[Rfam]
RNA sequence: CAGAAUAAAAGCAGACCAGAUUUAUGUAGCAAAUCCAGUUUUGACCGUGGCCGCCUGGUGUGCUCUUAUUCUGAA
Numbered sequence: 001c002a003g004a005a006u007a008a009a010a011g012c013a014g015a016c017c018a019g020a021u022u023u024a025u026g027u028a029g030c031a032a033a034u035c036c037a038g039u040u041u042u043g044a045c046c047g048u049g050g051c052c053g054c055c056u057g058g059u060g061u062g063c064u065c066u067u068a069u070u071c072u073g074a075a
Stems, first nucleotide, its partner, number of pairs: 001073008010064004015059005023049004030043004
The family of this 75-nucleotide RNA sequence from Acyrthosiphon pisum is "mir-3045 microRNA precursor family".